Rfam assigns this 87-nucleotide sequence to the family "GA-cis RNA".
It is annotated as a small RNA.

[Rfam]
RNA sequence: UUUAGUCAGUGUCCAUGGGACGAAGUCCCAUAUUAGGAUGACACUGACGAUCUGCCGCCGAACGGAUGUGAGGGGGCAAUACAUUAU
Numbered sequence: 001u002u003u004a005g006u007c008a009g010u011g012u013c014c015a016u017g018g019g020a021c022g023a024a025g026u027c028c029c030a031u032a033u034u035a036g037g038a039u040g041a042c043a044c045u046g047a048c049g050a051u052c053u054g055c056c057g058c059c060g061a062a063c064g065g066a067u068g069u070g071a072g073g074g075g076g077c078a079a080u081a082c083a084u085u086a087u
Stems, first nucleotide, its partner, number of pairs: 008045006015031006054077003058073002062069002